[Rfam]
RNA sequence: UUCUUAUCCAGAGAGGUGGAGGGACUGGCCCGAUGAAGCCCGGCAACCGUCACGCAGUUUGUGGCAAGGUGCCAAUUCCUGCAAGACAGCAGCAGUAUGUCUUGGCAGAUGAGAA
Numbered sequence: 001u002u003c004u005u006a007u008c009c010a011g012a013g014a015g016g017u018g019g020a021g022g023g024a025c026u027g028g029c030c031c032g033a034u035g036a037a038g039c040c041c042g043g044c045a046a047c048c049g050u051c052a053c054g055c056a057g058u059u060u061g062u063g064g065c066a067a068g069g070u071g072c073c074a075a076u077u078c079c080u081g082c083a084a085g086a087c088a089g090c091a092g093c094a095g096u097a098u099g100u101c102u103u104g105g106c107a108g109a110u111g112a113g114a115a
Stems, first nucleotide, its partner, number of pairs: 001115008013041001015040003021031003025081001027079002042073004047069002049065004077107001082104006
RNA: SAM riboswitch aptamer (S box leader)
Organism: Brevibacillus borstelensis